[Rfam]
RNA sequence: UUUUAGCCCUGAUUGCAGCGGCAUCCUUUUUAAUGGUUGAGCCUAAAGGCGAAAGCAUUAAAAAGAUACAGCGGAAAGCAGGAAAUAGC
Numbered sequence: 001u002u003u004u005a006g007c008c009c010u011g012a013u014u015g016c017a018g019c020g021g022c023a024u025c026c027u028u029u030u031u032a033a034u035g036g037u038u039g040a041g042c043c044u045a046a047a048g049g050c051g052a053a054a055g056c057a058u059u060a061a062a063a064a065g066a067u068a069c070a071g072c073g074g075a076a077a078g079c080a081g082g083a084a085a086u087a088g089c
Stems, first nucleotide, its partner, number of pairs: 009081003013077002018072002023067003029063002033058003037053002